RNA sequence: UGACCCGCACGCGACUGGCGAUAGGCGCUCUUGCCACCAUGGCAACGGGCACUGACGUGGGACACCACUGGGGAGCGUGCCGCAAAGUCCCGAAGGACUUCUGUGAUCAGCCGUUCGCCUGGGCAGCCCUG
Numbered sequence: 001u002g003a004c005c006c007g008c009a010c011g012c013g014a015c016u017g018g019c020g021a022u023a024g025g026c027g028c029u030c031u032u033g034c035c036a037c038c039a040u041g042g043c044a045a046c047g048g049g050c051a052c053u054g055a056c057g058u059g060g061g062a063c064a065c066c067a068c069u070g071g072g073g074a075g076c077g078u079g080c081c082g083c084a085a086a087g088u089c090c091c092g093a094a095g096g097a098c099u100u101c102u103g104u105g106a107u108c109a110g111c112c113g114u115u116c117g118c119c120u121g122g123g124c125a126g127c128c129c130u131g
Stems, first nucleotide, its partner, number of pairs: 005082001007080006015072002017119005057068004108126001110124003